The family of this 160-nucleotide RNA from Rhodoplanes elegans is "speF leader". On this family, see Corbino et al., Genome Biol 2005: "Evidence for a second class of S-adenosylmethionine riboswitches and other regulatory RNA motifs in alpha-proteobacteria". By type it is a cis-regulatory leader. About the family: This family is a putative regulatory RNA structure that is found upstream of the speF gene encoding ornithine decarboxylase in Agrobacterium tumefaciens and other alpha-proteobacteria.
RNA sequence: UGUCGGCCUUCCACAGCCGAUCAGGGCGCCGAAGAGGCUUGUUCAUCAUUGCCGGGCGUGCGGAUCGGGGCCUCCCCUUUCCAAUCCAAGGCAGCACGGACGGUCGAAGAGCCGUUCUCGAUUCACGCGUCCCCAUCGCGCGUGGUCGGGAAGGCAUCUC
Numbered sequence: 001u002g003u004c005g006g007c008c009u010u011c012c013a014c015a016g017c018c019g020a021u022c023a024g025g026g027c028g029c030c031g032a033a034g035a036g037g038c039u040u041g042u043u044c045a046u047c048a049u050u051g052c053c054g055g056g057c058g059u060g061c062g063g064a065u066c067g068g069g070g071c072c073u074c075c076c077c078u079u080u081c082c083a084a085u086c087c088a089a090g091g092c093a094g095c096a097c098g099g100a101c102g103g104u105c106g107a108a109g110a111g112c113c114g115u116u117c118u119c120g121a122u123u124c125a126c127g128c129g130u131c132c133c134c135a136u137c138g139c140g141c142g143u144g145g146u147c148g149g150g151a152a153g154g155c156a157u158c159u160c
Stems, first nucleotide, its partner, number of pairs: 002021006036053003060141003086098001106124003
Lineage of the source: Bacteria > Pseudomonadati > Alphaproteobacteria > Hyphomicrobiales > Rhodoplanes. It scores 42 bits against the family's covariance model. The family's consensus secondary structure was predicted with RNAalifold.